[Rfam]
About this RNA
Rfam assigns this 85-nucleotide RNA sequence from Nitrosomonas europaea to the family "Group II catalytic intron D1-D4-1". Taxonomically the source falls in Nitrosomonas europaea (Bacteria, Nitrosomonadales, Nitrosomonadaceae, Nitrosomonas). Gene Ontology term of the family: Group II intron splicing.
RNA sequence: CGCGUCCACUGGCAACGGUGGGCGUGACGGUGCAGAAGUCAGCAGAAGCCAUAGUAGGCAGCCAGGUGUCGGGCUGCCGAAGGGC
Numbered sequence: 001c002g003c004g005u006c007c008a009c010u011g012g013c014a015a016c017g018g019u020g021g022g023c024g025u026g027a028c029g030g031u032g033c034a035g036a037a038g039u040c041a042g043c044a045g046a047a048g049c050c051a052u053a054g055u056a057g058g059c060a061g062c063c064a065g066g067u068g069u070c071g072g073g074c075u076g077c078c079g080a081a082g083g084g085c
Base pairs, nucleotide, nucleotide: 001026002025004023005022006021007020008019009018010017011016039046040045048085049084050083057078058077059076060075061074062073
The pairing is the family consensus, mapped onto this sequence. Rfam 15.1 lists 2,508 matches to the family in 1,144 species.